[Rfam]
RNA sequence: CGGCGCGGCGGCAAUCAGGCUGUCUCGUUCGCAAGUGUUUAAUUUUUAAGGAAAUAUUAUGUCUGUUACUACAGAAAACAAAGCAGCUAUCGUCGGCGAAUACCAACGUGCUCAA
Number, nucleotide and partner (000 for none) at each position: 001c000002g000003g000004c000005g000006c000007g024008g023009c022010g021011g020012c019013a000014a000015u000016c000017a000018g000019g012020c011021u010022g009023u008024c007025u000026c000027g000028u000029u000030c000031g000032c000033a000034a000035g000036u000037g000038u000039u000040u000041a000042a000043u000044u000045u000046u068047u000048a066049a000050g064051g063052a000053a000054a000055u000056a000057u000058u000059a000060u000061g000062u000063c051064u050065g000066u048067u000068a046069c000070u000071a000072c000073a000074g000075a000076a000077a000078a000079c000080a000081a000082a000083g000084c000085a000086g000087c000088u000089a000090u000091c000092g000093u000094c000095g000096g000097c000098g000099a000100a000101u000102a000103c000104c000105a000106a000107c000108g000109u000110g000111c000112u000113c000114a000115a000